[Rfam]
RNA sequence: CUACUGCGUCCAAGAGGUUGCAGGAUGGGCAUACAGAAGUCAGCCGAAGGCAUAGUAGGUCUGCAAAGUUCGACCAGACUGAAGGCC
Numbered sequence: 001c002u003a004c005u006g007c008g009u010c011c012a013a014g015a016g017g018u019u020g021c022a023g024g025a026u027g028g029g030c031a032u033a034c035a036g037a038a039g040u041c042a043g044c045c046g047a048a049g050g051c052a053u054a055g056u057a058g059g060u061c062u063g064c065a066a067a068g069u070u071c072g073a074c075c076a077g078a079c080u081g082a083a084g085g086c087c
Stems, first nucleotide, its partner, number of pairs: 001027001004023005010017002040047002049087003058080006
Notes
This 87-nucleotide RNA sequence from Sedimentisphaera salicampi belongs to the Rfam family "Group II catalytic intron D1-D4-1". The match comes from Rfam's covariance-model search (62 bits). Gene Ontology term of the family: Group II intron splicing. The source organism's lineage runs through Bacteria, Pseudomonadati, Planctomycetota, Phycisphaerae and Sedimentisphaera. The pairing is the family consensus, mapped onto this sequence. A reference for the family is Bonen and Vogel (2001), "The ins and outs of group II introns", Trends Genet.